The record is an 80-nucleotide RNA from Desulfonema ishimotonii, which matches "c-di-GMP-I-GGC riboswitch aptamer" in Rfam. It scores 66 bits against the family's covariance model. Its family is annotated with cyclic-di-GMP binding in the Gene Ontology.
[Rfam]
RNA sequence: UCUGUGAAAGGCAAACCGGCUGCGAGGCCGGGACGCAAAGCCACCGGUCCGAACAGGUUCGGACAGCGGGGUUGCCGGAC
Numbered sequence: 001u002c003u004g005u006g007a008a009a010g011g012c013a014a015a016c017c018g019g020c021u022g023c024g025a026g027g028c029c030g031g032g033a034c035g036c037a038a039a040g041c042c043a044c045c046g047g048u049c050c051g052a053a054c055a056g057g058u059u060c061g062g063a064c065a066g067c068g069g070g071g072u073u074g075c076c077g078g079a080c
Stems, first nucleotide, its partner, number of pairs: 003077002011036002016031006034066001039073004044069003047064005